[Rfam]
RNA sequence: UGGUAACCAUCAAAAGUAACAGCAUCUCCACUGGAAUUUGAGACAUAGUCCACAUGGAGUUGCUGUUACAUUUGAUAACCCC
Numbered sequence: 001u002g003g004u005a006a007c008c009a010u011c012a013a014a015a016g017u018a019a020c021a022g023c024a025u026c027u028c029c030a031c032u033g034g035a036a037u038u039u040g041a042g043a044c045a046u047a048g049u050c051c052a053c054a055u056g057g058a059g060u061u062g063c064u065g066u067u068a069c070a071u072u073u074g075a076u077a078a079c080c081c082c
Stems, first nucleotide, its partner, number of pairs: 010075003016069008026059005032052003
RNA: mir-194 microRNA precursor family